[Rfam]
The family of this 101-nucleotide RNA from Flavobacterium humi is "Flavo-1 RNA". By type it is a small RNA. The source organism's lineage runs through Bacteria, Pseudomonadati, Bacteroidota, Flavobacteriia and Flavobacterium. The base pairs follow the family's consensus structure, which is taken from published work.

RNA sequence: GUGUAGCCCUGAUGGAAGCGGCAUCCUUUUUCCCUUGGGCAAACUUGCUUAUUACGCCAAUGCGGCGUGGGGAAAAGAUACAGCGUACAGCAGGAACAACA
Numbered sequence: 001g002u003g004u005a006g007c008c009c010u011g012a013u014g015g016a017a018g019c020g021g022c023a024u025c026c027u028u029u030u031u032c033c034c035u036u037g038g039g040c041a042a043a044c045u046u047g048c049u050u051a052u053u054a055c056g057c058c059a060a061u062g063c064g065g066c067g068u069g070g071g072g073a074a075a076a077g078a079u080a081c082a083g084c085g086u087a088c089a090g091c092a093g094g095a096a097c098a099a100c101a
Base pairs, nucleotide, nucleotide: 009093010092011091013089014088018084019083023079024078025077029074030073031072032071033070034069036067
Notes:
It scores 63 bits against the family's covariance model.